Rfam assigns this 75-nucleotide RNA from Varanus komodoensis to the family "mir-193 microRNA precursor family". It scores 73 bits against the family's covariance model. Rfam links the family to the GO terms RISC complex and miRNA-mediated post-transcriptional gene silencing.
RNA sequence: GUUUGGGGCUGGGUCUUUGCGGGCAAGAUGAUAAGUUUGUGCCUUCAACUGGCCUACAAAGUCCCAGUUCUCGGC
Numbered sequence: 001g002u003u004u005g006g007g008g009c010u011g012g013g014u015c016u017u018u019g020c021g022g023g024c025a026a027g028a029u030g031a032u033a034a035g036u037u038u039g040u041g042c043c044u045u046c047a048a049c050u051g052g053c054c055u056a057c058a059a060a061g062u063c064c065c066a067g068u069u070c071u072c073g074g075c
Base pairs, nucleotide, nucleotide: 003073005071006070007069008068010066011065012064013063015061016060017059018058019057021055022054023053024052026050027049029047030046